RNA sequence: GGCGUAAAGCGUUCGCAGGCGGCCUGACAAGUCUGCUGUCAAAGCCCGCGGCUUAACCGCGGAGAGGCAGUGGAAACUGCCAGGCUAGAGUGCGGUAGGGGUAGGGGGAAUUCCCAGUGUAGCGGUGAAAUGCGUAGAGAUUGGGAAGAACACCAGUGGCGAAAGCGCCCUACUGGACCGCAACUGACGCUCAGGGACGAAAGCUAGGGUAGCGAAAGGGAUUAGAUACCCCUGUAGUCCUAGCCGUAAACGAUGGAGACUAGGUGUGGCUCGUAUCGACCCGAGCCGUGCCGUAGCUAACGCGUUAAGUCUCCCGCCUGGGGAGUACGCGCGCAAGCGUGAAACUCAAAGGAAU
Numbered sequence: 001g002g003c004g005u006a007a008a009g010c011g012u013u014c015g016c017a018g019g020c021g022g023c024c025u026g027a028c029a030a031g032u033c034u035g036c037u038g039u040c041a042a043a044g045c046c047c048g049c050g051g052c053u054u055a056a057c058c059g060c061g062g063a064g065a066g067g068c069a070g071u072g073g074a075a076a077c078u079g080c081c082a083g084g085c086u087a088g089a090g091u092g093c094g095g096u097a098g099g100g101g102u103a104g105g106g107g108g109a110a111u112u113c114c115c116a117g118u119g120u121a122g123c124g125g126u127g128a129a130a131u132g133c134g135u136a137g138a139g140a141u142u143g144g145g146a147a148g149a150a151c152a153c154c155a156g157u158g159g160c161g162a163a164a165g166c167g168c169c170c171u172a173c174u175g176g177a178c179c180g181c182a183a184c185u186g187a188c189g190c191u192c193a194g195g196g197a198c199g200a201a202a203g204c205u206a207g208g209g210u211a212g213c214g215a216a217a218g219g220g221a222u223u224a225g226a227u228a229c230c231c232c233u234g235u236a237g238u239c240c241u242a243g244c245c246g247u248a249a250a251c252g253a254u255g256g257a258g259a260c261u262a263g264g265u266g267u268g269g270c271u272c273g274u275a276u277c278g279a280c281c282c283g284a285g286c287c288g289u290g291c292c293g294u295a296g297c298u299a300a301c302g303c304g305u306u307a308a309g310u311c312u313c314c315c316g317c318c319u320g321g322g323g324a325g326u327a328c329g330c331g332c333g334c335a336a337g338c339g340u341g342a343a344a345c346u347c348a349a350a351g352g353a354a355u
Stems, first nucleotide, its partner, number of pairs: 001318003009315001011198004018191003022085005028079001030078002032074009046062006089185003092181005100174007107151001111147008122133003159166002203244006212238002217233004255314006263292011296303002320347003329340004
RNA: Bacterial small subunit ribosomal RNA, nucleotides 513 to 867